The record is a 74-nucleotide RNA sequence from Megalops atlanticus, which matches "mir-551 microRNA precursor family" in Rfam.
The match comes from Rfam's covariance-model search (52 bits).
Taxonomically the source falls in Megalops (Eukaryota, Chordata, Vertebrata, Elopiformes).
Pairs were carried over by alignment from the consensus structure, which was predicted with RNAalifold.
RNA sequence: UGCCCCCUGAGGUCAGGGGUGGGUGGAGCUUGUAUCCAAGCAGUCAGGCGACCCAUUCAUGAUUUCAGAGGUCA
Numbered sequence: 001u002g003c004c005c006c007c008u009g010a011g012g013u014c015a016g017g018g019g020u021g022g023g024u025g026g027a028g029c030u031u032g033u034a035u036c037c038a039a040g041c042a043g044u045c046a047g048g049c050g051a052c053c054c055a056u057u058c059a060u061g062a063u064u065u066c067a068g069a070g071g072u073c074a
Stems, first nucleotide, its partner, number of pairs: 002073001004071002007068001009066006017058001021054004028049004